[Rfam]
The family of this 101-nucleotide RNA sequence from Dothistroma septosporum is "Small nucleolar RNA Z13/snr52".
RNA sequence: UCGCACCUAGAUGAAGAAAUAUCUUGGAUGUUAAAACACAAUACCUCCGAUGGCGCAAAACCAUGUGGAUAUUUCCAGUUGCCUUCCUUCUGAUAACAACC
Numbered sequence: 001u002c003g004c005a006c007c008u009a010g011a012u013g014a015a016g017a018a019a020u021a022u023c024u025u026g027g028a029u030g031u032u033a034a035a036a037c038a039c040a041a042u043a044c045c046u047c048c049g050a051u052g053g054c055g056c057a058a059a060a061c062c063a064u065g066u067g068g069a070u071a072u073u074u075c076c077a078g079u080u081g082c083c084u085u086c087c088u089u090c091u092g093a094u095a096a097c098a099a100c101c
Stems, first nucleotide, its partner, number of pairs: 003100001025077004
The source organism's lineage runs through Eukaryota, Opisthokonta, Fungi, Mycosphaerellales and Dothistroma septosporum.
Rfam classes the family as a C/D-box small nucleolar RNA.
A search with the family's covariance model found it, with a score of 70 bits.